RNA sequence: UUUUAGCCCCGAUAGCAGUGCAAAUCCUUUUGCGCCGGGGUUCGGCACAAAAGAUUGGAACGUAUAGCGGGAAGAGCU
Numbered sequence: 001u002u003u004u005a006g007c008c009c010c011g012a013u014a015g016c017a018g019u020g021c022a023a024a025u026c027c028u029u030u031u032g033c034g035c036c037g038g039g040g041u042u043c044g045g046c047a048c049a050a051a052a053g054a055u056u057g058g059a060a061c062g063u064a065u066a067g068c069g070g071g072a073a074g075a076g077c078u
Stems, first nucleotide, its partner, number of pairs: 009070003013066002018061002023056004029051004034046003

A member of the RNA family "Flavo-1 RNA" from Flavobacterium sp. HMWF030, 78 nucleotides long. The organism belongs to Flavobacterium, within Bacteria. Pairs were carried over by alignment from the consensus structure, which is taken from published work. A search with the family's covariance model found it, with a score of 70 bits. By type it is a small RNA.